[Rfam]
RNA sequence: GCUGACAACGCGGAAGAGACCUGCCGAUUCGGUUUACCGAGGGGGCAGGCGCCGAAGGAGCAACCGCCCCGGAAUCUCUCAGGCAAAAGGACCGCGCCCGUCGA
Numbered sequence: 001g002c003u004g005a006c007a008a009c010g011c012g013g014a015a016g017a018g019a020c021c022u023g024c025c026g027a028u029u030c031g032g033u034u035u036a037c038c039g040a041g042g043g044g045g046c047a048g049g050c051g052c053c054g055a056a057g058g059a060g061c062a063a064c065c066g067c068c069c070c071g072g073a074a075u076c077u078c079u080c081a082g083g084c085a086a087a088a089g090g091a092c093c094g095c096g097c098c099c100g101u102c103g104a
Stems, first nucleotide, its partner, number of pairs: 009096005020049006051084003054080002058078003064072002